Bacterial RNase P class A: a 424-nucleotide RNA sequence from Paenochrobactrum gallinarii. Rfam classes the family as a ribozyme. About the family: Ribonuclease P (RNase P) is a ubiquitous endoribonuclease, found in archaea, bacteria and eukarya as well as chloroplasts and mitochondria. The organism belongs to Paenochrobactrum, within Bacteria.

RNA sequence: UCAGUCGGUCGGGCAGCCGCGCUUGUCAUAUGUCGAAAGACGGCAAGUGAGGAAAGUCCGGGCUCCAUGGAAACACGGUGCCGGGUAACACCCGGCGAGGGUAACCUCAGGGAUAGUGCCACAGAAAGCAAACCGCCCCGUCUCCGGUUGUGUCGUAACGGACAUAAGCGGUGACGGGGUAAGGGUGAAAGGGUGGGGUAAGAGCCCACCGCAUUGCUGGUAACAGGAAUGGCAAGGUAAACCCCACCGGGAGCAAGACCGAAUAGGGACGGCGCGUUGUUUCGUAAGAAACAGCAAUCAGUUUCCGGAUAGCCGUCCGGGUGGGUUGCACGAGGCGGGUGGCGACAUCCGUCCCAGAUGAAUGGCUGCCACGUUGAGCUUUUGCUCAGCCAUACAGAACCCGGCUUACAGACCGACUGACAUU
Numbered sequence: 001u002c003a004g005u006c007g008g009u010c011g012g013g014c015a016g017c018c019g020c021g022c023u024u025g026u027c028a029u030a031u032g033u034c035g036a037a038a039g040a041c042g043g044c045a046a047g048u049g050a051g052g053a054a055a056g057u058c059c060g061g062g063c064u065c066c067a068u069g070g071a072a073a074c075a076c077g078g079u080g081c082c083g084g085g086u087a088a089c090a091c092c093c094g095g096c097g098a099g100g101g102u103a104a105c106c107u108c109a110g111g112g113a114u115a116g117u118g119c120c121a122c123a124g125a126a127a128g129c130a131a132a133c134c135g136c137c138c139c140g141u142c143u144c145c146g147g148u149u150g151u152g153u154c155g156u157a158a159c160g161g162a163c164a165u166a167a168g169c170g171g172u173g174a175c176g177g178g179g180u181a182a183g184g185g186u187g188a189a190a191g192g193g194u195g196g197g198g199u200a201a202g203a204g205c206c207c208a209c210c211g212c213a214u215u216g217c218u219g220g221u222a223a224c225a226g227g228a229a230u231g232g233c234a235a236g237g238u239a240a241a242c243c244c245c246a247c248c249g250g251g252a253g254c255a256a257g258a259c260c261g262a263a264u265a266g267g268g269a270c271g272g273c274g275c276g277u278u279g280u281u282u283c284g285u286a287a288g289a290a291a292c293a294g295c296a297a298u299c300a301g302u303u304u305c306c307g308g309a310u311a312g313c314c315g316u317c318c319g320g321g322u323g324g325g326u327u328g329c330a331c332g333a334g335g336c337g338g339g340u341g342g343c344g345a346c347a348u349c350c351g352u353c354c355c356a357g358a359u360g361a362a363u364g365g366c367u368g369c370c371a372c373g374u375u376g377a378g379c380u381u382u383u384g385c386u387c388a389g390c391c392a393u394a395c396a397g398a399a400c401c402c403g404g405c406u407u408a409c410a411g412a413c414c415g416a417c418u419g420a421c422a423u424u
Stems, first nucleotide, its partner, number of pairs: 001420010011409001012370007020049008054407003058404005063253004072304002076249005081095005096110001097108004111244002116242002118238003133184002135180008192210006211233001212231004217226003257327004267318006297310003334353008